[Rfam]
RNA sequence: GGCUAGUAAGCGCUAGGCUAAAGUGUGGCGUCCGAAGGGAUCAGCAGCCUAACAGAAGUUAGGAAACUCACUCUAGGGACUAGCCUCCUC
Dot-bracket structure: (((((((...(.((((........(((((((((....))))..))..((((((....)))))).....))).))))).))))))).....
Description: The family of this 90-nucleotide RNA sequence is "DUF3800-VII RNA".